Notes:
Rfam assigns this 136-nucleotide sequence from Tupaia belangeri to the family "Small nucleolar RNA SNORA31". On this family, see Huttenhofer et al., EMBO J 2001: "RNomics: an experimental approach that identifies 201 candidates for novel, small, non-messenger RNAs in mouse". From the family's description: ACA31 (SNORA31) belongs to the H/ACA class of snoRNAs which are thought to guide the sites of modification of uridines to pseudouridines. ACA31 is predicted to guide the pseudouridylation of U3713 in 28S rRNA and U218 in 18S rRNA. This family includes the mouse homologue snoMBI-161. The source organism's lineage runs through Eukaryota, Opisthokonta, Vertebrata, Mammalia and Tupaia belangeri. A search with the family's covariance model found it, with a score of 52 bits. The base pairs follow the family's consensus structure, which was predicted with RNAalifold. By type it is an H/ACA-box small nucleolar RNA.
RNA sequence: ACGCAUCUAUUUGACAGACCUUGGGGCAGUUGCUGUCUGCUGCUAAGGUUUCUACUACAGAUGCAAGAAAAAAGUGUCUUCGCAUUUUCUGUCUGUCUGAAUUGUGGCAGCCAAGAUUGAAUGGAGGAAUACAGAG
Dot-bracket structure: ..((((((...((..(((((....(((((.......))))).....))))).))....))))))............(((((...(..(((..(((((........)))))...)))..)....)))))........
Numbered sequence: 001a002c003g004c005a006u007c008u009a010u011u012u013g014a015c016a017g018a019c020c021u022u023g024g025g026g027c028a029g030u031u032g033c034u035g036u037c038u039g040c041u042g043c044u045a046a047g048g049u050u051u052c053u054a055c056u057a058c059a060g061a062u063g064c065a066a067g068a069a070a071a072a073a074g075u076g077u078c079u080u081c082g083c084a085u086u087u088u089c090u091g092u093c094u095g096u097c098u099g100a101a102u103u104g105u106g107g108c109a110g111c112c113a114a115g116a117u118u119g120a121a122u123g124g125a126g127g128a129a130u131a132c133a134g135a136g
Stems, first nucleotide, its partner, number of pairs: 003064006012054002016051005025041005077128005085119001088116003093110005